Shown here is a 298-nucleotide RNA sequence from Quercus lobata, a member of the family "Plant signal recognition particle RNA". It scores 188 bits against the family's covariance model. The base pairs follow the family's consensus structure, which is taken from published work. The family is grouped with related families in Rfam's "SRP clan".
RNA sequence: ACCGAGCUGAGUAGCGCUGGCUUGUAAACUCGAGCGAGGGUAUAUAAGGAGAUGGGCCAAUGAUUUGGCUCAUUGCGCAGGAUCAGCAAGUGCAAAAUCCUGGCUCGCCAGUUGAGAGCUAAACCAUGUGACUUGGGCGAAGGCCUGGGUCUUGUGGUUCCUAGAGUGGAGGGUAUAGCGUGAGGCUGGUUUCAUAGAGCAGCGAAGACCUCCCGCCCUCGACUAUGGAAGGAUAACGAGCUGGUGUGCUUCUGAUCCACUUGCCUGGUGAGUUGAGCUCACUUGAACCAUCUCUUUU
Numbered sequence: 001a002c003c004g005a006g007c008u009g010a011g012u013a014g015c016g017c018u019g020g021c022u023u024g025u026a027a028a029c030u031c032g033a034g035c036g037a038g039g040g041u042a043u044a045u046a047a048g049g050a051g052a053u054g055g056g057c058c059a060a061u062g063a064u065u066u067g068g069c070u071c072a073u074u075g076c077g078c079a080g081g082a083u084c085a086g087c088a089a090g091u092g093c094a095a096a097a098u099c100c101u102g103g104c105u106c107g108c109c110a111g112u113u114g115a116g117a118g119c120u121a122a123a124c125c126a127u128g129u130g131a132c133u134u135g136g137g138c139g140a141a142g143g144c145c146u147g148g149g150u151c152u153u154g155u156g157g158u159u160c161c162u163a164g165a166g167u168g169g170a171g172g173g174u175a176u177a178g179c180g181u182g183a184g185g186c187u188g189g190u191u192u193c194a195u196a197g198a199g200c201a202g203c204g205a206a207g208a209c210c211u212c213c214c215g216c217c218c219u220c221g222a223c224u225a226u227g228g229a230a231g232g233a234u235a236a237c238g239a240g241c242u243g244g245u246g247u248g249c250u251u252c253u254g255a256u257c258c259a260c261u262u263g264c265c266u267g268g269u270g271a272g273u274u275g276a277g278c279u280c281a282c283u284u285g286a287a288c289c290a291u292c293u294c295u296u297u298u
Stems, first nucleotide, its partner, number of pairs: 001041003004023006029038003046297010058285002062279001064276002067273001070271006077264003080258007088250001090249003095245001100244008109232001110224007118216002122159007130151009161166001168213005179204003186197003
Dot-bracket structure: (((((((((........)))))).....(((....))))))....((((((((((..((..(.((.(..((((((.((((((((((.(.(((..(....((((((((.((((((((.((..(((((((.(((((((((....))))))))).))))))).(....).(((((......(((....(((......)))....)))....))))).)).))))))).......)....))))))))).)))).)))))))...))).)))))).).))..)....))..)))))))))).
Annotation: Rfam links the family to the GO terms SRP-dependent cotranslational protein targeting to membrane, signal sequence recognition and signal recognition particle, endoplasmic reticulum targeting.